[Rfam]
The family of this 314-nucleotide part of an RNA from Trichormus azollae is "Bacterial large subunit ribosomal RNA". The base pairs follow the family's consensus structure, which is taken from published work. Taxonomically the source falls in Trichormus azollae (Bacteria, Bacillati, Cyanobacteriota, Cyanophyceae).

RNA sequence: GCAAACAUUGGUGAGAAUCCAAUGCCCCGAAACCCUAAGGGUUCCAGAGCCAGGUUCGUCCACUCUGGGUUAGUCGGGUCCUAAGGCGAGGCCGAACGGCGUAGUCGAUGGAUACAGGGUCAAUAAUCCCUGACUAUUAUGUGGGAGCAUUACUAGGGACGCAUAAAAGAUAGCCAUACCCUGAUUGGUUUGGGAGACCGUUACGACGGUCGAGUGGUGAAAGAUAGUGCCAAGAAAAGCUAGGAAUGCGAUGAAAGCAUAGUACCCGUACCCGAAACCGACACAGGUAGGGAGGUUGAGUAUACCAAGGGGCG
Number, nucleotide and partner (000 for none) at each position: 001g000002c000003a000004a000005a000006c024007a023008u022009u021010g020011g019012u000013g000014a000015g000016a000017a000018u000019c011020c010021a009022a008023u007024g006025c312026c311027c310028c309029g000030a000031a000032a000033c292034c291035c290036u289037a000038a000039g272040g271041g000042u000043u000044c068045c067046a066047g065048a064049g063050c000051c000052a000053g061054g060055u000056u000057c000058g000059u000060c054061c053062a000063c049064u048065c047066u046067g045068g044069g000070u000071u000072a000073g000074u000075c268076g267077g266078g265079u000080c111081c110082u000083a000084a000085g106086g105087c104088g000089a102090g000091g100092c099093c098094g000095a000096a000097c000098g093099g092100c091101g000102u089103a000104g087105u086106c085107g000108a000109u000110g081111g080112a000113u000114a000115c132116a131117g130118g129119g128120u000121c000122a000123a000124u000125a000126a000127u000128c119129c118130c117131u116132g115133a000134c000135u264136a263137u262138u261139a260140u259141g258142u257143g000144g000145g000146a000147g000148c248149a247150u000151u000152a000153c243154u242155a241156g240157g000158g000159a000160c000161g230162c229163a228164u227165a000166a000167a000168a000169g000170a000171u000172a000173g218174c217175c216176a215177u000178a000179c000180c000181c000182u000183g000184a000185u000186u000187g000188g000189u000190u000191u000192g000193g000194g000195a000196g211197a210198c209199c208200g207201u206202u000203a000204c000205g000206a201207c200208g199209g198210u197211c196212g000213a000214g000215u176216g175217g174218u173219g000220a000221a000222a000223g000224a000225u000226a000227g164228u163229g162230c161231c000232a000233a000234g000235a000236a000237a000238a000239g000240c156241u155242a154243g153244g000245a000246a000247u149248g148249c000250g000251a000252u000253g000254a000255a000256a000257g142258c141259a140260u139261a138262g137263u136264a135265c078266c077267c076268g075269u000270a000271c040272c039273c000274g000275a000276a000277a000278c287279c286280g000281a000282c000283a000284c000285a000286g279287g278288u000289a036290g035291g034292g033293a000294g306295g305296u304297u000298g000299a000300g000301u000302a000303u000304a296305c295306c294307a000308a000309g028310g027311g026312g025313c000314g000